[Rfam]
The family of this 60-nucleotide sequence from Lentivirus humimdef1 is "Trans-activation response element (TAR)".
The source organism's lineage runs through Viruses, Riboviria, Pararnavirae, Artverviricota and Lentivirus humimdef1.
Rfam's curators put it in the seed alignment.
From the family's description: This family represents the HIV trans-activation response (TAR) element which is known to be required for the trans-activation of the viral promoter and for virus replication.
RNA sequence: GGGUCUCUCUUGGUAGACCAGAUCGAGCCUGGGAGCUCUCUGGUUGACAAGGGAACCCAC
Number, nucleotide and partner (000 for none) at each position: 001g058002g057003g056004u055005c000006u054007c053008u052009c051010u050011u049012g048013g000014u046015a045016g044017a000018c043019c042020a041021g040022a039023u000024c000025g038026a037027g036028c035029c000030u000031g000032g000033g000034a000035g028036c027037u026038c025039u022040c021041u020042g019043g018044u016045u015046g014047a000048c012049a011050a010051g009052g008053g007054a006055a004056c003057c002058c001059a000060c000